[Rfam]
RNA sequence: CUGCGGGCCGCGUUAGUCGGACCUGGUGGUAAAGAGCACAGGGUGGUUUUUCCGGCUUCACACCUUGGCCAACGAAAAGGCAGUCGAGCUCUUGUCCCACCCGGCCC
Numbered sequence: 001c002u003g004c005g006g007g008c009c010g011c012g013u014u015a016g017u018c019g020g021a022c023c024u025g026g027u028g029g030u031a032a033a034g035a036g037c038a039c040a041g042g043g044u045g046g047u048u049u050u051u052c053c054g055g056c057u058u059c060a061c062a063c064c065u066u067g068g069c070c071a072a073c074g075a076a077a078a079g080g081c082a083g084u085c086g087a088g089c090u091c092u093u094g095u096c097c098c099a100c101c102c103g104g105c106c107c
Stems, first nucleotide, its partner, number of pairs: 006106004012022003025101003028097002033092004039067007068081003
RNA: Rhizobiales sRNA Atu_At1